[Rfam]
RNA sequence: AGAUGAGAGAAACACCCCGCUCACAGGAGACUGUGAGCGACGCCGGGCCGGUGCAUCCCCAGCCCCGUUCCGGCCGCGCCAUGGCGCGCACCACUGGAGUCUCUGGCUCUGGAUCUCCUCACCGAUCGGA
Numbered sequence: 001a002g003a004u005g006a007g008a009g010a011a012a013c014a015c016c017c018c019g020c021u022c023a024c025a026g027g028a029g030a031c032u033g034u035g036a037g038c039g040a041c042g043c044c045g046g047g048c049c050g051g052u053g054c055a056u057c058c059c060c061a062g063c064c065c066c067g068u069u070c071c072g073g074c075c076g077c078g079c080c081a082u083g084g085c086g087c088g089c090a091c092c093a094c095u096g097g098a099g100u101c102u103c104u105g106g107c108u109c110u111g112g113a114u115c116u117c118c119u120c121a122c123c124g125a126u127c128g129g130a
Stems, first nucleotide, its partner, number of pairs: 004121004009117002018039009042074006049067003053063002076089004094112008122129002

The record is a 130-nucleotide RNA from Streptomyces buecherae, which matches "Streptomyces RNA 5676" in Rfam. It is annotated as a small RNA. From the family's description: Identified by deep sequencing of transcriptome at the end of exponential growth phase. Appears longer on northern blot than sequencing transcript. This indicates processing step. Streptomyces specific. Taxonomically the source falls in Streptomyces (Bacteria, Bacillati, Actinomycetota, Actinomycetes). A reference for the family is Vockenhuber et al. (2011), "Deep sequencing-based identification of small non-coding RNAs in Streptomyces coelicolor", RNA Biol.